RNA sequence: CCCACUGAGGAGCGCUGCGACGGGCAGAGUCCCGCGAGGCUCGGCGGGGGAGAAUCGCAAUAACGGCGCUCGUUCAUU
Numbered sequence: 001c002c003c004a005c006u007g008a009g010g011a012g013c014g015c016u017g018c019g020a021c022g023g024g025c026a027g028a029g030u031c032c033c034g035c036g037a038g039g040c041u042c043g044g045c046g047g048g049g050g051a052g053a054a055u056c057g058c059a060a061u062a063a064c065g066g067c068g069c070u071c072g073u074u075c076a077u078u
Stems, first nucleotide, its partner, number of pairs: 002047002005044004021034004